tRNA: a 73-nucleotide RNA sequence from Hpunavirus HP1. Rfam's curators write: Transfer RNA (tRNA) molecules are approximately 80 nucleotides in length. Pairs were carried over by alignment from the consensus structure, which is taken from published work. Taxonomically the source falls in Hpunavirus (Viruses, Duplodnaviria, Uroviricota, Caudoviricetes). The sequence is in the family's curated seed alignment.
RNA sequence: GGGUCGUUAGCUCAGUCGGUAGAGCAGCGGACUUUUAAUCCGUUGGUCGAAGGUUCGAAUCCUUCACGACCCA
Dot-bracket structure: (((((((..((((........)))).(((((.......))))).....(((((.......)))))))))))).